[Rfam]
RNA: Purine riboswitch aptamer
Organism: Propionigenium maris
RNA sequence: AUAUUAUAAGGUAUAAACACUCGUAUAUACUUAAGAUAUGGUUAAGUGUCUCUACAGGUCGCCGUAAAUGACCAACUAUGGGUGAAGGUAAAAAUAGU
Numbered sequence: 001a002u003a004u005u006a007u008a009a010g011g012u013a014u015a016a017a018c019a020c021u022c023g024u025a026u027a028u029a030c031u032u033a034a035g036a037u038a039u040g041g042u043u044a045a046g047u048g049u050c051u052c053u054a055c056a057g058g059u060c061g062c063c064g065u066a067a068a069u070g071a072c073c074a075a076c077u078a079u080g081g082g083u084g085a086a087g088g089u090a091a092a093a094a095u096a097g098u
Stems, first nucleotide, its partner, number of pairs: 018084008029047006057073005